[Rfam]
RNA sequence: GCAAAUUGAGGUAGUAGGUUGUAUAGUAGUAAUUACACAUCAUACUAUACAAUGUGCUAGCUUUCUUUGC
Numbered sequence: 001g002c003a004a005a006u007u008g009a010g011g012u013a014g015u016a017g018g019u020u021g022u023a024u025a026g027u028a029g030u031a032a033u034u035a036c037a038c039a040u041c042a043u044a045c046u047a048u049a050c051a052a053u054g055u056g057c058u059a060g061c062u063u064u065c066u067u068u069g070c
Stems, first nucleotide, its partner, number of pairs: 001070005008063003012059005018053010029036002